[Rfam]
RNA sequence: CCUGCGGUGUGAGUCCGGUUCGGGUAGCUGCCAGGAGGCCCGGCAGCAGGCUGGCGGCGUCGGAGGGAAACGUCGGCGUCGACAGAAGCCCAGCGUCAAGAGCACUUCAGGGGCAACAACUGAGCGGUCCGUAGCAUCA
Numbered sequence: 001c002c003u004g005c006g007g008u009g010u011g012a013g014u015c016c017g018g019u020u021c022g023g024g025u026a027g028c029u030g031c032c033a034g035g036a037g038g039c040c041c042g043g044c045a046g047c048a049g050g051c052u053g054g055c056g057g058c059g060u061c062g063g064a065g066g067g068a069a070a071c072g073u074c075g076g077c078g079u080c081g082a083c084a085g086a087a088g089c090c091c092a093g094c095g096u097c098a099a100g101a102g103c104a105c106u107u108c109a110g111g112g113g114c115a116a117c118a119a120c121u122g123a124g125c126g127g128u129c130c131g132u133a134g135c136a137u138c139a
Stems, first nucleotide, its partner, number of pairs: 020043005050094005055081006065071001102114002105111001116132002
Group II catalytic intron D1-D4-4: a 139-nucleotide RNA from Nocardioides immobilis. The match comes from Rfam's covariance-model search (64 bits). Rfam 15.1 lists 840 matches to the family in 506 species. Lineage of the source: Bacteria > Actinomycetes > Propionibacteriales > Nocardioidaceae > Nocardioides. Group II introns are found in rRNA, tRNA and mRNA of organelles in fungi, plants and protists, and also in mRNA in bacteria. Rfam links the family to the GO term Group II intron splicing. The literature on the family includes a 2003 paper in Crit Rev Biochem Mol Biol by Lehmann and Schmidt, "Group II introns: structure and catalytic versatility of large natural ribozymes".